[Rfam]
Nucleotides: 170
Stems, first nucleotide, its partner, number of pairs: 001016006028170001030168001036162001040157011063145005073138003080132005086114004092107004
Number, partner (000 for none) and nucleotide at each position: 001016u002015c003014u004013a005012u006011c007000g008000u009000g010000a011006g012005g013004u014003a015002g016001a017000a018000u019000c020000u021000g022000a023000a024000g025000g026000a027000a028170g029000u030168c031000u032000u033000a034000g035000a036162c037000a038000a039000a040157g041156c042155a043154u044153c045152g046151a047150a048149u049148c050147g051000a052000u053000g054000u055000a056000c057000a058000a059000g060000a061000a062000g063145u064144g065143g066142c067141u068000a069000a070000a071000a072000g073138g074137c075136u076000g077000g078000a079000a080132a081131c082130g083129g084128u085000g086114g087113g088112a089111u090000g091000a092107g093106g094105u095104u096000g097000c098000u099000a100000c101000a102000c103000a104095a105094a106093c107092c108000g109000a110000a111089g112088u113087c114086c115000u116000u117000g118000a119000c120000c121000a122000c123000u124000c125000g126000a127000a128084a129083c130082c131081g132080u133000c134000a135000c136075a137074g138073u139000a140000a141067a142066g143065c144064c145063a146000a147050c148049g149048g150047u151046u152045u153044g154043a155042u156041g157040u158000g159000a160000a161000a162036g163000c164000u165000a166000c167000u168030g169000u170028u